[Rfam]
RNA sequence: CUUGACCGACCCCAGCCACAGCGGUUCGCCGUCCGCGCCCCGCUCCUGCCCGUACGUGGCCAUCAGCGCCUGGGCCUC
Numbered sequence: 001c002u003u004g005a006c007c008g009a010c011c012c013c014a015g016c017c018a019c020a021g022c023g024g025u026u027c028g029c030c031g032u033c034c035g036c037g038c039c040c041c042g043c044u045c046c047u048g049c050c051c052g053u054a055c056g057u058g059g060c061c062a063u064c065a066g067c068g069c070c071u072g073g074g075c076c077u078c
Stems, first nucleotide, its partner, number of pairs: 014026004034074001036072001041068002047062002050059003